[Rfam]
Background
Rfam assigns this 68-nucleotide sequence from Prevotella dentalis to the family "Bacteroidetes FopS (family of paralogous sRNAs)". About the family: The RNA-binding protein RbpB and BTncRNA_FopS sRNA are involved in the post-transcription regulation of polysaccharide utilisation loci (PUL). The base pairs follow the family's consensus structure, which is taken from published work. Its family is annotated with sRNA-mediated gene silencing in the Gene Ontology. The family's RNA type in Rfam is small RNA.

RNA sequence: GUGUUUUUCAUAGUAUUAGAUUUAAGGUUAACAAAGGUUGGGGACUCGGCGGAGCCCCCUUUUUUGUA
Numbered sequence: 001g002u003g004u005u006u007u008u009c010a011u012a013g014u015a016u017u018a019g020a021u022u023u024a025a026g027g028u029u030a031a032c033a034a035a036g037g038u039u040g041g042g043g044a045c046u047c048g049g050c051g052g053a054g055c056c057c058c059c060u061u062u063u064u065u066g067u068a
Stems, first nucleotide, its partner, number of pairs: 041058003045054003